[Rfam]
RNA: sucA-II RNA
RNA sequence: CUGCCGCACCGACGUCAUGUCGGUGUUGCAGUAUCGCCAGGGCGCUGGCCUAGCCGCCAGCGCCCUUAUACGAAAAAUAUGACGACCAGCAGGGGCAUUCGGGCUGGUGCCCGGACUAUCUGCGGGAUUCUUGGUGGCUUUGCUGAAGUCGCUGCAACCUGACUUCGAAAGCCUACGGUGUCCUCGCCGGUGGUGUCCCCUUACCGAGGGUGACCA
Numbered sequence: 001c002u003g004c005c006g007c008a009c010c011g012a013c014g015u016c017a018u019g020u021c022g023g024u025g026u027u028g029c030a031g032u033a034u035c036g037c038c039a040g041g042g043c044g045c046u047g048g049c050c051u052a053g054c055c056g057c058c059a060g061c062g063c064c065c066u067u068a069u070a071c072g073a074a075a076a077a078u079a080u081g082a083c084g085a086c087c088a089g090c091a092g093g094g095g096c097a098u099u100c101g102g103g104c105u106g107g108u109g110c111c112c113g114g115a116c117u118a119u120c121u122g123c124g125g126g127a128u129u130c131u132u133g134g135u136g137g138c139u140u141u142g143c144u145g146a147a148g149u150c151g152c153u154g155c156a157a158c159c160u161g162a163c164u165u166c167g168a169a170a171g172c173c174u175a176c177g178g179u180g181u182c183c184u185c186g187c188c189g190g191u192g193g194u195g196u197c198c199c200c201u202u203a204c205c206g207a208g209g210g211u212g213a214c215c216a
Base pairs, nucleotide, nucleotide: 001031002030003029004028006026007025008024009023010022011021012020013019040065041064042063043062044061045060047058048057049056091201092200093199094198095197096195097194098115099114100113101112102111103110116193117192118191119190120189122187123186124185126182127181129178130177134176135175136174137173138171139170140169143167147164148163149162150161151160